[Rfam]
RNA sequence: UACACCAGAAGAGGUUGCAUUAGCCAGGUAGAUAAUUUGAGGACCACAUCCUUUGAUAAUUAUUAAUGGGGACUAGUGCCGAGGACAACGACUUGUGUGGAAGAGUCUUGUUCGGUCAGAUAGGCUGAAUCCUAAUGACUGUCACCGAAACGGUGGAGAGCUUCUGGCUGA
Numbered sequence: 001u002a003c004a005c006c007a008g009a010a011g012a013g014g015u016u017g018c019a020u021u022a023g024c025c026a027g028g029u030a031g032a033u034a035a036u037u038u039g040a041g042g043a044c045c046a047c048a049u050c051c052u053u054u055g056a057u058a059a060u061u062a063u064u065a066a067u068g069g070g071g072a073c074u075a076g077u078g079c080c081g082a083g084g085a086c087a088a089c090g091a092c093u094u095g096u097g098u099g100g101a102a103g104a105g106u107c108u109u110g111u112u113c114g115g116u117c118a119g120a121u122a123g124g125c126u127g128a129a130u131c132c133u134a135a136u137g138a139c140u141g142u143c144a145c146c147g148a149a150a151c152g153g154u155g156g157a158g159a160g161c162u163u164c165u166g167g168c169u170g171a
Base pairs, nucleotide, nucleotide: 006166007165008164009163010162011161017079018078019077020076021075022074023073025071031064032063033062034061035060036059037058083113084112085111086110087109090107091106092105093104094103114140115139116138117137119136121134122133123132124131142156143155144154145153146152147151
Rfam assigns this 171-nucleotide RNA sequence from Thalassomonas sp. M1454 to the family "Lysine riboswitch aptamer".
Its family is annotated with lysine biosynthetic process in the Gene Ontology.